[Rfam]
RNA sequence: UCCCUGUCCUCCAGGAGCUCACUUAUAUCUGGCCGUGAGCUCCUCGAGGCCAGAGCCC
Number, nucleotide and partner (000 for none) at each position: 001u000002c055003c000004c053005u052006g051007u000008c049009c000010u047011c046012c000013a044014g043015g042016a000017g040018c039019u038020c037021a036022c035023u032024u031025a030026u000027a000028u000029c000030u025031g024032g023033c000034c000035g022036u021037g020038a019039g018040c017041u000042c015043c014044u013045c000046g011047a010048g000049g008050c000051c006052a005053g004054a000055g002056c000057c000058c000